[Rfam]
RNA sequence: GGAUGUAAGGGCAAUUUGGCUAAGACAUCUGUCUCCCCAUGAAUCACCAGAGUUGAGAGUUGAUUUGGCUGAUCUAGCUGGCUAGGCAGGUGUUCCCUUCCACCCUCACUGCUCCAUGUGCAUCCCUCCUGAAGCUGUGCACUCAGUCAAAGAGGAUGACUUUCCCCGAUAAAGAUGUACUGUUCCUCGGUCAAGAGUACACAGUAGCUGCACUCCCAUGCUAGAAUCAACAAACAAGAGUUCAAGGUCCAUUUGUAGGAGAACAUAUAUUAGUCAAGCUUCCAAGACUGCAGAUAUAUGCAAGUGAGGAACUACACAGGGCAGUCUGCCAUUGUUU
Numbered sequence: 001g002g003a004u005g006u007a008a009g010g011g012c013a014a015u016u017u018g019g020c021u022a023a024g025a026c027a028u029c030u031g032u033c034u035c036c037c038c039a040u041g042a043a044u045c046a047c048c049a050g051a052g053u054u055g056a057g058a059g060u061u062g063a064u065u066u067g068g069c070u071g072a073u074c075u076a077g078c079u080g081g082c083u084a085g086g087c088a089g090g091u092g093u094u095c096c097c098u099u100c101c102a103c104c105c106u107c108a109c110u111g112c113u114c115c116a117u118g119u120g121c122a123u124c125c126c127u128c129c130u131g132a133a134g135c136u137g138u139g140c141a142c143u144c145a146g147u148c149a150a151a152g153a154g155g156a157u158g159a160c161u162u163u164c165c166c167c168g169a170u171a172a173a174g175a176u177g178u179a180c181u182g183u184u185c186c187u188c189g190g191u192c193a194a195g196a197g198u199a200c201a202c203a204g205u206a207g208c209u210g211c212a213c214u215c216c217c218a219u220g221c222u223a224g225a226a227u228c229a230a231c232a233a234a235c236a237a238g239a240g241u242u243c244a245a246g247g248u249c250c251a252u253u254u255g256u257a258g259g260a261g262a263a264c265a266u267a268u269a270u271u272a273g274u275c276a277a278g279c280u281u282c283c284a285a286g287a288c289u290g291c292a293g294a295u296a297u298a299u300g301c302a303a304g305u306g307a308g309g310a311a312c313u314a315c316a317c318a319g320g321g322c323a324g325u326c327u328g329c330c331a332u333u334g335u336u337u
Base pairs, nucleotide, nucleotide: 001115002114003113005109006108008106009105010104011103014099018097019096024094025093026092027091028090029089030088031087032086033085035081036080037077039075043073044072045071047068048067049066050065051064124177126174127173129146130145131144132143134142147169148168154165155164156163207279208278209277213273214272218268219267220266228261231258234256235255236254237253238252302337303336304335306332308330309329311325312324313323315321
Rfam assigns this 337-nucleotide RNA from Mesitornis unicolor to the family "7SK RNA".
It is annotated as a non-coding RNA gene.
7SK was discovered as an abundant small nuclear RNA in the mid-70s but a possible function has only recently been suggested. Two independent studies have found that 7SK RNA binds the CDK9/cyclin T complex (known as elongation factor P-TEFb). P-TEFb activates transcription by phosphorylating the C-terminal domain of RNA polymerase II. This process is negatively regulated by the 7SK RNP. The secondary structure of 7SK RNA shown here was proposed by Wasserman and Steitz on the basis of chemical modification and enzymatic cleavage experiments.
The source organism's lineage runs through Eukaryota, Archosauria, Theropoda, Columbimorphae and Mesitornis.